[Rfam]
RNA sequence: CUACUCCCUCUGUCCCAAAAUAUAAGAAGGUUUUUUACACUAGUAUAGUGUAAAAAACGUUUUUAUAUUUUGGGACAGAGGGAGUAA
Numbered sequence: 001c002u003a004c005u006c007c008c009u010c011u012g013u014c015c016c017a018a019a020a021u022a023u024a025a026g027a028a029g030g031u032u033u034u035u036u037a038c039a040c041u042a043g044u045a046u047a048g049u050g051u052a053a054a055a056a057a058c059g060u061u062u063u064u065a066u067a068u069u070u071u072g073g074g075a076c077a078g079a080g081g082g083a084g085u086a087a
Stems, first nucleotide, its partner, number of pairs: 003085003007081005013075005019069010030058012
Rfam assigns this 87-nucleotide RNA from Triticum urartu to the family "MIR1120/MIR1122 microRNA precursor family". Rfam links the family to the GO terms RISC complex and miRNA-mediated post-transcriptional gene silencing. The organism belongs to Triticum, within Eukaryota.